A member of the RNA family "skipping-rope RNA" from Clostridium tepidiprofundi, 89 nucleotides long. The source organism's lineage runs through Bacteria, Bacillati, Clostridia, Clostridiaceae and Clostridium tepidiprofundi. It is annotated as a small RNA. A search with the family's covariance model found it, with a score of 55 bits.
RNA sequence: GAGCUGUGAGGAUCGGAAAUGGCACCCGACACGCUGUCUAGUUUUAGGCAGUAAACAGGUAUGCAGGAUACGCCGCCCUGCCAGAGUUC
Numbered sequence: 001g002a003g004c005u006g007u008g009a010g011g012a013u014c015g016g017a018a019a020u021g022g023c024a025c026c027c028g029a030c031a032c033g034c035u036g037u038c039u040a041g042u043u044u045u046a047g048g049c050a051g052u053a054a055a056c057a058g059g060u061a062u063g064c065a066g067g068a069u070a071c072g073c074c075g076c077c078c079u080g081c082c083a084g085a086g087u088u089c
Stems, first nucleotide, its partner, number of pairs: 001089005007083002011030001013029004020075004032058001033052008063081005